[Rfam]
RNA sequence: AGGGUGCCAAACGGCAACACGCCAGUGAGAGUGGCGACGGGAACAUGGUCGCUCCCGACGUAGGGCACUCUAUCCAAUUUUGUGAGACCCCC
Numbered sequence: 001a002g003g004g005u006g007c008c009a010a011a012c013g014g015c016a017a018c019a020c021g022c023c024a025g026u027g028a029g030a031g032u033g034g035c036g037a038c039g040g041g042a043a044c045a046u047g048g049u050c051g052c053u054c055c056c057g058a059c060g061u062a063g064g065g066c067a068c069u070c071u072a073u074c075c076a077a078u079u080u081u082g083u084g085a086g087a088c089c090c091c092c
Stems, first nucleotide, its partner, number of pairs: 001071007011061003020036005038057005